Description
The family of this 140-nucleotide sequence from Populus trichocarpa is "MIR480 microRNA precursor family". Rfam's curators put it in the seed alignment. The literature on the family includes a 2005 paper in Plant Cell by Lu et al., "Novel and mechanical stress-responsive MicroRNAs in Populus trichocarpa that are absent from Arabidopsis".
[Rfam]
RNA sequence: AAUACAUCUAUUAGGCUAUCCUCAUUUAGUUAUGGCAGAACCACACUUGACUGCUUAGAAUCAUUCAUUAUCGCUAGCCUGACUACAUUAUUAACACUAAAAAACAAAGGAGAACUACUAUAUGAACAAUAAGUUUUUAA
Numbered sequence: 001a002a003u004a005c006a007u008c009u010a011u012u013a014g015g016c017u018a019u020c021c022u023c024a025u026u027u028a029g030u031u032a033u034g035g036c037a038g039a040a041c042c043a044c045a046c047u048u049g050a051c052u053g054c055u056u057a058g059a060a061u062c063a064u065u066c067a068u069u070a071u072c073g074c075u076a077g078c079c080u081g082a083c084u085a086c087a088u089u090a091u092u093a094a095c096a097c098u099a100a101a102a103a104a105c106a107a108a109g110g111a112g113a114a115c116u117a118c119u120a121u122a123u124g125a126a127c128a129a130u131a132a133g134u135u136u137u138u139a140a
Stems, first nucleotide, its partner, number of pairs: 004138001006136001008133002012129001014127001018123002024121002027117005